[Rfam]
RNA sequence: CUUGCUCUAACGGGGUGCCGGUCGCGCAAGGGUCGCGAGCCGGCUGAGAGGCAAAGGGCGAAAUCCCCUGCCAACCCGCUGAACCUGAUCCGGCUUGUACCGGCGGAGGGAUUAGAUGCGUUCGCUCA
Numbered sequence: 001c002u003u004g005c006u007c008u009a010a011c012g013g014g015g016u017g018c019c020g021g022u023c024g025c026g027c028a029a030g031g032g033u034c035g036c037g038a039g040c041c042g043g044c045u046g047a048g049a050g051g052c053a054a055a056g057g058g059c060g061a062a063a064u065c066c067c068c069u070g071c072c073a074a075c076c077c078g079c080u081g082a083a084c085c086u087g088a089u090c091c092g093g094c095u096u097g098u099a100c101c102g103g104c105g106g107a108g109g110g111a112u113u114a115g116a117u118g119c120g121u122u123c124g125c126u127c128a
Base pairs, nucleotide, nucleotide: 006116007115008114009113010112011078012077013076014075017044018043019042020041021040051071052070053069084109085108086107090103091102092101093100

Source information: TPP riboswitch aptamer (THI element): a 128-nucleotide RNA sequence from Mesorhizobium sp. L-8-10. Pairs were carried over by alignment from the consensus structure, which is taken from published work.